[Rfam]
RNA sequence: ACCAUCCUUUUCUUGGAGUUGCACCACUGUCUGGUGAGCACGUAGUGAGGGCAGUCUGUACAACAUGCCUGCAUCAACUAGAACUUUGCUUUACCUUGGUGUAAUUUUUGGAAAA
Dot-bracket structure: .....(.((.....)).).((((..(((((((.....((.....))..))))))).))))..........((((((..((((.(...).))))...)))))).............
The record is a 115-nucleotide RNA from Prolemur simus, which matches "U4atac minor spliceosomal RNA" in Rfam. Its family is annotated with spliceosomal tri-snRNP complex assembly, mRNA 5'-splice site recognition and U4atac snRNP in the Gene Ontology. Rfam's curators write: U4atac is an essential component of the minor U12-type spliceosome complex which is required for removal of the rarer class of eukaryotic introns (AT-AC, U12-type). Clan: U4 clan. On this family, see Shukla et al., Nucleic Acids Res 2002: "Domains of human U4atac snRNA required for U12-dependent splicing in vivo". The family's RNA type in Rfam is spliceosomal small nuclear RNA.